[Rfam]
RNA: Small nucleolar RNA SNORA68
RNA sequence: CAUGCACCCUAACCCAAAGGUCAUAUCACAUAAUUGGUAUGAUUUUAAUCUGGUGUGCAAAUAGAAAAUUGGAUCUUGUCGCCUUUCAUUGAUGCUGUAGUGCCUUUGAAAGUGAAUUCAAGAUCUAACAAGU
Dot-bracket structure: ..(((((.(.........((((((((((......))))))))))........).)))))...........(((((((.....((((((..(..((......)))..)))))).......))))))).......